[Rfam]
RNA sequence: UAAAAAAUUAAAUAUCAUACUCGUAUAUCCUCAGUAAUAUGGUCUGAGGGUCUCUACCAGGUUCCCACGGAAAGAACCGGACUACGAGUUAAAGUAUAAGAUUU
Numbered sequence: 001u002a003a004a005a006a007a008u009u010a011a012a013u014a015u016c017a018u019a020c021u022c023g024u025a026u027a028u029c030c031u032c033a034g035u036a037a038u039a040u041g042g043u044c045u046g047a048g049g050g051u052c053u054c055u056a057c058c059a060g061g062u063u064c065c066c067a068c069g070g071a072a073a074g075a076a077c078c079g080g081a082c083u084a085c086g087a088g089u090u091a092a093a094g095u096a097u098a099a100g101a102u103u104u
Stems, first nucleotide, its partner, number of pairs: 019089007029049006058080001060078005
Dot-bracket structure: ..................(((((((...((((((.........))))))........(.(((((.........))))).)..)))))))...............
RNA: Purine riboswitch aptamer